[Rfam]
RNA: c-di-GMP-I-GGC riboswitch aptamer
Nucleotides: 078
Stems, first nucleotide, its partner, number of pairs: 001078001004074001011036002016031006034064001039071004044067003047062003
Number, partner (000 for none) and nucleotide at each position: 001078g002000u003000u004074g005000a006000u007000a008000a009000a010000g011036c012035c013000a014000c015000a016031a017030c018029c019028g020027u021026c022000g023000c024000g025000a026021g027020a028019c029018g030017g031016u032000g033000u034064c035012g036011g037000a038000a039071a040070g041069c042068c043000a044067c045066g046065g047062g048061u049060c050000u051000c052000u053000a054000u055000g056000a057000a058000g059000a060049g061048a062047c063000a064034g065046c066045c067044g068042g069041g070040u071039u072000a073000c074004c075000u076000g077000c078001u